[Rfam]
Record summary:
The record is a 350-nucleotide part of an RNA from Chitinibacter fontanus, which matches "Bacterial large subunit ribosomal RNA" in Rfam. NCBI's taxonomy places the organism under Bacteria, Pseudomonadota, Betaproteobacteria, Neisseriales, Chitinibacter. Pairs were carried over by alignment from the consensus structure, which is taken from published work. A search with the family's covariance model found it, with a score of 2842 bits. The family has 102 seed sequences and 51,934 matches in Rfam 15.1.
RNA sequence: UGAGAGAACUCGGGAGAAGGAACUCGGCAAAUUGACACCGUAACUUCGGGAGAAGGUGUGCCUCUAGUAGGUGAAGGUGUACAACCGGAGCCCAAUGAGGCCGCAGAGAAAUGAGGGCUGCGACUGUUUAUCAAAAACACAGCACUGUGCUAACACGAAAGUGGAUGUAUACGGUGUGACGCCUGCCCGGUGCUGGAAGAUUAAAUGAUGGGGUGCAAGCUCUUGAUUGAAGUCCCAGUAAACGGCGGCCGUAACUAUAACGGUCCUAAGGUAGCGAAAUUCCUUGUCGGGUAAGUUCCGACCCGCACGAAUGGCGUAACGAUGGCCCUACUGUCUCCUCCCGAGACUCA
Numbered sequence: 001u002g003a004g005a006g007a008a009c010u011c012g013g014g015a016g017a018a019g020g021a022a023c024u025c026g027g028c029a030a031a032u033u034g035a036c037a038c039c040g041u042a043a044c045u046u047c048g049g050g051a052g053a054a055g056g057u058g059u060g061c062c063u064c065u066a067g068u069a070g071g072u073g074a075a076g077g078u079g080u081a082c083a084a085c086c087g088g089a090g091c092c093c094a095a096u097g098a099g100g101c102c103g104c105a106g107a108g109a110a111a112u113g114a115g116g117g118c119u120g121c122g123a124c125u126g127u128u129u130a131u132c133a134a135a136a137a138c139a140c141a142g143c144a145c146u147g148u149g150c151u152a153a154c155a156c157g158a159a160a161g162u163g164g165a166u167g168u169a170u171a172c173g174g175u176g177u178g179a180c181g182c183c184u185g186c187c188c189g190g191u192g193c194u195g196g197a198a199g200a201u202u203a204a205a206u207g208a209u210g211g212g213g214u215g216c217a218a219g220c221u222c223u224u225g226a227u228u229g230a231a232g233u234c235c236c237a238g239u240a241a242a243c244g245g246c247g248g249c250c251g252u253a254a255c256u257a258u259a260a261c262g263g264u265c266c267u268a269a270g271g272u273a274g275c276g277a278a279a280u281u282c283c284u285u286g287u288c289g290g291g292u293a294a295g296u297u298c299c300g301a302c303c304c305g306c307a308c309g310a311a312u313g314g315c316g317u318a319a320c321g322a323u324g325g326c327c328c329u330a331c332u333g334u335c336u337c338c339u340c341c342c343g344a345g346a347c348u349c350a
Stems, first nucleotide, its partner, number of pairs: 001350004009345008018336003035059005044049001060101005070085001072083002075080001102106001114329007121321002125139003142177008150167001154163003180316004185246003190243002192239005199234003205228001210223005247265006266270001276303001286302006